[Rfam]
RNA sequence: CAGCCUGGAGAGAGAAGCAGAGUCUGAUCUGUAGCCUCCUUGGCAGCUGUUGAUCAGCACUUGCCUCUCUCUUUCUCUCCG
Numbered sequence: 001c002a003g004c005c006u007g008g009a010g011a012g013a014g015a016a017g018c019a020g021a022g023u024c025u026g027a028u029c030u031g032u033a034g035c036c037u038c039c040u041u042g043g044c045a046g047c048u049g050u051u052g053a054u055c056a057g058c059a060c061u062u063g064c065c066u067c068u069c070u071c072u073u074u075c076u077c078u079c080c081g
Stems, first nucleotide, its partner, number of pairs: 008073008017064004024057006032049004
Annotation: Rfam assigns this 81-nucleotide RNA from Cnephaeus nilssonii to the family "mir-574 microRNA precursor family". NCBI's taxonomy places the organism under Eukaryota, Gnathostomata, Teleostomi, Yangochiroptera, Cnephaeus.